[Rfam]
RNA sequence: UGGCUGUGACGACCAAGAACUUGGUUUGUCGAUGCUGAAUUGCUGACUUGAUUUAAUCAAGGACCAAAUUAUUGAUGACCUUUGUGUGUGUCUGAGCCAU
Numbered sequence: 001u002g003g004c005u006g007u008g009a010c011g012a013c014c015a016a017g018a019a020c021u022u023g024g025u026u027u028g029u030c031g032a033u034g035c036u037g038a039a040u041u042g043c044u045g046a047c048u049u050g051a052u053u054u055a056a057u058c059a060a061g062g063a064c065c066a067a068a069u070u071a072u073u074g075a076u077g078a079c080c081u082u083u084g085u086g087u088g089u090g091u092c093u094g095a096g097c098c099a100u
Base pairs, nucleotide, nucleotide: 001099002098003097004096